[Rfam]
RNA sequence: CUCACGGACCGGGCCCCUCUGGCGUGCAUACUCAAGCUCGCGAUGUCGGACCGUGAUC
Numbered sequence: 001c002u003c004a005c006g007g008a009c010c011g012g013g014c015c016c017c018u019c020u021g022g023c024g025u026g027c028a029u030a031c032u033c034a035a036g037c038u039c040g041c042g043a044u045g046u047c048g049g050a051c052c053g054u055g056a057u058c
Stems, first nucleotide, its partner, number of pairs: 006052002009049004022041003026037002029034001